The record is a 75-nucleotide RNA from Cavia porcellus, which matches "Small nucleolar RNA SNORD24" in Rfam. For this family Rfam cites "U24, a novel intron-encoded small nucleolar RNA with two 12 nt long, phylogenetically conserved complementarities to 28S rRNA" (Qu et al., Nucleic Acids Res, 1995). Rfam links the family to the GO terms RNA processing and nucleolus. The base pairs follow the family's consensus structure, which was predicted with PFOLD.

[Rfam]
RNA sequence: UGCAGAUGAUGUGAAAGAAUAUUUGCUAUCUGGAGGAUGGUGAUGACAUGUCAAACCACCAAGAUCGCUGAUGCA
Numbered sequence: 001u002g003c004a005g006a007u008g009a010u011g012u013g014a015a016a017g018a019a020u021a022u023u024u025g026c027u028a029u030c031u032g033g034a035g036g037a038u039g040g041u042g043a044u045g046a047c048a049u050g051u052c053a054a055a056c057c058a059c060c061a062a063g064a065u066c067g068c069u070g071a072u073g074c075a
Stems, first nucleotide, its partner, number of pairs: 001075004